[Rfam]
RNA sequence: AAAAAAAGGAGCAAUACCGCCCUCUUGAUAGAACAAGAAAGAGGUUAUUGCUCCUUUU
Numbered sequence: 001a002a003a004a005a006a007a008g009g010a011g012c013a014a015u016a017c018c019g020c021c022c023u024c025u026u027g028a029u030a031g032a033a034c035a036a037g038a039a040a041g042a043g044g045u046u047a048u049u050g051c052u053c054c055u056u057u058u
Base pairs, nucleotide, nucleotide: 005057006056007055008054009053010052011051012050013049014048015047016046020041023038024037025036026035027034